A member of the RNA family "Small nucleolar RNA SNORA29" from Lates calcarifer, 139 nucleotides long. Rfam describes the family as follows. ACA29 is a member of the H/ACA class of snoRNA that guide the sites of modification of uridines to pseudouridines. The family's consensus secondary structure was predicted with PFOLD. Rfam classes the family as an H/ACA-box small nucleolar RNA. Rfam 15.1 lists 960 matches to the family in 621 species. Rfam links the family to the GO terms RNA processing and nucleolus.
RNA sequence: AAUCCCAUUUUAGUGCCUUUCAUUCGCACCACCAUGAAUGUUCGGCUAUGCUAAUGGGAUAGAAAAGACACUGUCAUGGUCUGAAGGUGUGGCUAGCUGACUGUGCACCCCACUGAAUAAAAUGACAGAAUAUUGCAAU
Numbered sequence: 001a002a003u004c005c006c007a008u009u010u011u012a013g014u015g016c017c018u019u020u021c022a023u024u025c026g027c028a029c030c031a032c033c034a035u036g037a038a039u040g041u042u043c044g045g046c047u048a049u050g051c052u053a054a055u056g057g058g059a060u061a062g063a064a065a066a067g068a069c070a071c072u073g074u075c076a077u078g079g080u081c082u083g084a085a086g087g088u089g090u091g092g093c094u095a096g097c098u099g100a101c102u103g104u105g106c107a108c109c110c111c112a113c114u115g116a117a118u119a120a121a122a123u124g125a126c127a128g129a130a131u132a133u134u135g136c137a138a139u
Stems, first nucleotide, its partner, number of pairs: 004058004016045002073126004091114002